RNA sequence: CCUCUUCGAUCUGCUGCGGGCAGAUGAAGUGGAUGUGCGCAUCGAUGCCGCCGGCGGUGACGAUAUUGCCUUCGCCGGCGAUGAUCUCGGUGCCCGGCCCGAUGGGGAUCGUCACGCCGGGCUGGAUGUCGGGGUUGCCGGCCUUGCCGAUGGCGCUGAUGCGCCCGCCCUUGAUGCCGAUGUCGGCCUUGACGAUGCCCCAGUGGUCGAGGAUCAGCGCGUUGGUGAUGACCGUGUCGGCCACCUCGUCCGACAGCCGCUGGCUCUGGCCCAUGCCGUCACGG
Numbered sequence: 001c002c003u004c005u006u007c008g009a010u011c012u013g014c015u016g017c018g019g020g021c022a023g024a025u026g027a028a029g030u031g032g033a034u035g036u037g038c039g040c041a042u043c044g045a046u047g048c049c050g051c052c053g054g055c056g057g058u059g060a061c062g063a064u065a066u067u068g069c070c071u072u073c074g075c076c077g078g079c080g081a082u083g084a085u086c087u088c089g090g091u092g093c094c095c096g097g098c099c100c101g102a103u104g105g106g107g108a109u110c111g112u113c114a115c116g117c118c119g120g121g122c123u124g125g126a127u128g129u130c131g132g133g134g135u136u137g138c139c140g141g142c143c144u145u146g147c148c149g150a151u152g153g154c155g156c157u158g159a160u161g162c163g164c165c166c167g168c169c170c171u172u173g174a175u176g177c178c179g180a181u182g183u184c185g186g187c188c189u190u191g192a193c194g195a196u197g198c199c200c201c202a203g204u205g206g207u208c209g210a211g212g213a214u215c216a217g218c219g220c221g222u223u224g225g226u227g228a229u230g231a232c233c234g235u236g237u238c239g240g241c242c243a244c245c246u247c248g249u250c251c252g253a254c255a256g257c258c259g260c261u262g263g264c265u266c267u268g269g270c271c272c273a274u275g276c277c278g279u280c281a282c283g284g
Stems, first nucleotide, its partner, number of pairs: 003284001005283001008280002011158001013156002016154002018076002022072002030053003034050002037048003057069003077148002081144001083142001085140001090138001092135004096130003103125001106123002109120002111117001163270001165269003171263003175259002177256001186220002189217003200209001223253001225251001230246001234244003
Dot-bracket structure: ..(.(..((.(.((.((((..((......(((.((.(((......))))))))...(((.......))).))..))((..(.(.(....(.(((((((....(..((.(((.....).)).)).)..))).))))..).).).)..))....)))).)....(.(((...(((.(((........((.(((........(........).....))).))..(.(....(...(((.....))).)....).)..).)).)))...))))........))..))
The record is a 284-nucleotide RNA from Denitromonas iodatirespirans, which matches "5' ureB small RNA" in Rfam. Rfam links the family to the GO term negative regulation of gene expression. The match comes from Rfam's covariance-model search (127 bits).